[Rfam]
RNA: Plastid-psbA-2 3UTR RNA
Organism: Papaver somniferum
RNA sequence: AUGAAGGAGCAAUACCGACCCUCUUAUUCUAUCAAGAGGGUCGGUAUUGUUCCUUCAACUUC
Numbered sequence: 001a002u003g004a005a006g007g008a009g010c011a012a013u014a015c016c017g018a019c020c021c022u023c024u025u026a027u028u029c030u031a032u033c034a035a036g037a038g039g040g041u042c043g044g045u046a047u048u049g050u051u052c053c054u055u056c057a058a059c060u061u062c
Stems, first nucleotide, its partner, number of pairs: 002057018022037004